[Rfam]
RNA sequence: AGGUAACGGUAAGGUCUCUGCACGCGUGGUGUUUGAUGUGCGUGAGGUGGCCGAGUUUAGCGUGGAAGGACGCGUGGAAGGCGAGUGAAUGUGUGUGGUGCAAGGCCGAGUGCGUGCGUGCAAGGAGAGUGCGUGCCCGCGUGCCGAGCCGGCCCUUCCUGAGCCCUUCCCCCCCUACACUCUGAUCUUAUUUGAUCGGGCCGGGCUCACGCCUCGCCGGCCCGGCCCGAGAUGAGAAGCUCCUCUCCCGCGAAGCCCCGACCGGCCGUGGCCGGGACGCUGUGCGGCGAGACCUGUGCGAACAGGCGGCGGCCGCUCCCGGGCUCCCCGAGCCAGCCCUUCCGCGGGCCGGGCCGGGCGCUCAGAAGUGAUGAGUUGAUCAGAUAGAUGAGGCGGGGCUCGCCCUAGCCCUUGAGUAUCGAGGCGAUUCUGAUCUGA
Numbered sequence: 001a002g003g004u005a006a007c008g009g010u011a012a013g014g015u016c017u018c019u020g021c022a023c024g025c026g027u028g029g030u031g032u033u034u035g036a037u038g039u040g041c042g043u044g045a046g047g048u049g050g051c052c053g054a055g056u057u058u059a060g061c062g063u064g065g066a067a068g069g070a071c072g073c074g075u076g077g078a079a080g081g082c083g084a085g086u087g088a089a090u091g092u093g094u095g096u097g098g099u100g101c102a103a104g105g106c107c108g109a110g111u112g113c114g115u116g117c118g119u120g121c122a123a124g125g126a127g128a129g130u131g132c133g134u135g136c137c138c139g140c141g142u143g144c145c146g147a148g149c150c151g152g153c154c155c156u157u158c159c160u161g162a163g164c165c166c167u168u169c170c171c172c173c174c175c176u177a178c179a180c181u182c183u184g185a186u187c188u189u190a191u192u193u194g195a196u197c198g199g200g201c202c203g204g205g206c207u208c209a210c211g212c213c214u215c216g217c218c219g220g221c222c223c224g225g226c227c228c229g230a231g232a233u234g235a236g237a238a239g240c241u242c243c244u245c246u247c248c249c250g251c252g253a254a255g256c257c258c259c260g261a262c263c264g265g266c267c268g269u270g271g272c273c274g275g276g277a278c279g280c281u282g283u284g285c286g287g288c289g290a291g292a293c294c295u296g297u298g299c300g301a302a303c304a305g306g307c308g309g310c311g312g313c314c315g316c317u318c319c320c321g322g323g324c325u326c327c328c329c330g331a332g333c334c335a336g337c338c339c340u341u342c343c344g345c346g347g348g349c350c351g352g353g354c355c356g357g358g359c360g361c362u363c364a365g366a367a368g369u370g371a372u373g374a375g376u377u378g379a380u381c382a383g384a385u386a387g388a389u390g391a392g393g394c395g396g397g398g399c400u401c402g403c404c405c406u407a408g409c410c411c412u413u414g415a416g417u418a419u420c421g422a423g424g425c426g427a428u429u430c431u432g433a434u435c436u437g438a
Stems, first nucleotide, its partner, number of pairs: 055164004060075005093113001095111002099108001116153002121148001124145002127142001191238003196230004201225004208220001211217002270324001272322006279316002284313002288311002293306002295302001332359003336355001337353003363437004373430006392410003397405002
RNA: Small Cajal body-specific RNA 2